[Rfam]
RNA: Small nucleolar RNA Z199
Organism: Brassica oleracea
RNA sequence: GGAUCAGAUGAUGAGCAAAUACUGCAACAAUAUGAUGGAUUAAAAUCCUCAUGAUUCUUAGUAUUUAAGUCUCUGAUGAUC
Numbered sequence: 001g002g003a004u005c006a007g008a009u010g011a012u013g014a015g016c017a018a019a020u021a022c023u024g025c026a027a028c029a030a031u032a033u034g035a036u037g038g039a040u041u042a043a044a045a046u047c048c049u050c051a052u053g054a055u056u057c058u059u060a061g062u063a064u065u066u067a068a069g070u071c072u073c074u075g076a077u078g079a080u081c
Stems, first nucleotide, its partner, number of pairs: 001081002004079003037050001038048001041045001